[Rfam]
RNA sequence: GCUGCGCCUAGCCUUUGGCCGGGCGAAGAGUCGGGCACCUUCACCGACCUGGCGCGGCGUCCACCAUUGAAGG
Numbered sequence: 001g002c003u004g005c006g007c008c009u010a011g012c013c014u015u016u017g018g019c020c021g022g023g024c025g026a027a028g029a030g031u032c033g034g035g036c037a038c039c040u041u042c043a044c045c046g047a048c049c050u051g052g053c054g055c056g057g058c059g060u061c062c063a064c065c066a067u068u069g070a071a072g073g
Base pairs, nucleotide, nucleotide: 001058002057003056004055005054006053007052008051011024012023013022014021030048031047032046033045034044038073039072040071041070042069043068
int-alpA RNA: a 73-nucleotide RNA sequence from Thauera aromatica.
The organism belongs to Thauera aromatica, within Bacteria.
Acidobacteria (1 example), Planctomycetes (1 example), Proteobacteria.
By type it is a small RNA.